Rfam assigns this 78-nucleotide sequence from Cephus cinctus to the family "mir-971 microRNA precursor family". The organism belongs to Cephus, within Eukaryota.
Nucleotides: 078
Base pairs, nucleotide, nucleotide: 006073007072008071009070010069011068012067013066015064016063017062025054026053027052028051029050030049031048032047
Number, partner (000 for none) and nucleotide at each position: 001000c002000g003000g004000g005000c006073g007072g008071u009070u010069c011068a012067c013066u014000c015064u016063a017062a018000g019000u020000u021000c022000g023000a024000a025054u026053a027052c028051c029050a030049a031048g032047c033000c034000c035000u036000g037000u038000c039000u040000g041000a042000a043000a044000a045000u046000a047032g048031c049030u050029u051028g052027g053026u054025g055000u056000u057000c058000u059000a060000c061000c062017u063016u064015a065000c066013a067012g068011u069010g070009a071008a072007u073006c074000g075000a076000g077000c078000g